[Rfam]
RNA sequence: AGACAGACAUUGGAUGAAUCCUACCCGGUGAGGCCUUUAUAGAACCACCCACACCGGACGAGAUUUCAUCCGACAGCAG
Number, nucleotide and partner (000 for none) at each position: 001a000002g000003a000004c076005a000006g074007a000008c000009a000010u073011u072012g071013g070014a069015u068016g067017a065018a064019u063020c062021c000022u060023a000024c000025c057026c056027g055028g054029u053030g000031a000032g050033g049034c000035c000036u000037u000038u000039a000040u000041a000042g000043a000044a000045c000046c000047a000048c000049c033050c032051a000052c000053a029054c028055c027056g026057g025058a000059c000060g022061a000062g020063a019064u018065u017066u000067c016068a015069u014070c013071c012072g011073a010074c006075a000076g004077c000078a000079g000
A member of the RNA family "mir-3478 microRNA precursor family" from Dufourea novaeangliae, 79 nucleotides long. A search with the family's covariance model found it, with a score of 77 bits. The base pairs follow the family's consensus structure, which was predicted with RNAalifold.